[Rfam]
RNA sequence: AGUCUGCGAUGAUGCGGGAGAUUGCUCAGAAAUGAGGUAACUUCCGCGGAGUAUGUCCGAUAAUCGGGCGG
Numbered sequence: 001a002g003u004c005u006g007c008g009a010u011g012a013u014g015c016g017g018g019a020g021a022u023u024g025c026u027c028a029g030a031a032a033u034g035a036g037g038u039a040a041c042u043u044c045c046g047c048g049g050a051g052u053a054u055g056u057c058c059g060a061u062a063a064u065c066g067g068g069c070g071g
Stems, first nucleotide, its partner, number of pairs: 014047003018044003025036004054070006
RNA: S10-Clostridia ribosomal protein leader